The family of this 98-nucleotide RNA sequence from Oceanobacillus sp. J11TS1 is "SAM riboswitch aptamer (S box leader)". Pairs were carried over by alignment from the consensus structure, which is taken from published work.
[Rfam]
RNA sequence: CUCUUAUCAAGAGUGGUGGAGGGAAUGGGCCCUAUGAAACCCGGCAACCUAUAAACUUGGUGCUAAGUCCUACAGAUGAAUAGUCUGAAAGAUAAGGG
Numbered sequence: 001c002u003c004u005u006a007u008c009a010a011g012a013g014u015g016g017u018g019g020a021g022g023g024a025a026u027g028g029g030c031c032c033u034a035u036g037a038a039a040c041c042c043g044g045c046a047a048c049c050u051a052u053a054a055a056c057u058u059g060g061u062g063c064u065a066a067g068u069c070c071u072a073c074a075g076a077u078g079a080a081u082a083g084u085c086u087g088a089a090a091g092a093u094a095a096g097g098g
Base pairs, nucleotide, nucleotide: 001098002097003096004095005094006093007092008091013042015041016040017039021032022031023030026072027071028070029069043064044063045062046061048060049059068090073087074086075085076084077083
Annotation: Lineage of the source: Bacteria > Bacillati > Bacillota > Bacillaceae > Oceanobacillus. A search with the family's covariance model found it, with a score of 81 bits.